Shown here is a 100-nucleotide RNA sequence from Paenibacillus sp. FSL R7-0331, a member of the family "Purine riboswitch aptamer". The organism belongs to Paenibacillus, within Bacteria. Rfam links the family to the GO term purine nucleobase biosynthetic process. The match comes from Rfam's covariance-model search (62 bits). The base pairs follow the family's consensus structure, which is taken from published work.
RNA sequence: GCGUUGAGCAGCAAAAUUAUUCGUAUAAUUCCGGGGAUUGGCCUGGAAGUCUCUACAGGGUCACCGUAAUGGCCUGGCUACGAUUAAAAAGAGCGAUUCC
Numbered sequence: 001g002c003g004u005u006g007a008g009c010a011g012c013a014a015a016a017u018u019a020u021u022c023g024u025a026u027a028a029u030u031c032c033g034g035g036g037a038u039u040g041g042c043c044u045g046g047a048a049g050u051c052u053c054u055a056c057a058g059g060g061u062c063a064c065c066g067u068a069a070u071g072g073c074c075u076g077g078c079u080a081c082g083a084u085u086a087a088a089a090a091g092a093g094c095g096a097u098u099c100c
Stems, first nucleotide, its partner, number of pairs: 018086002021083005029048007058075006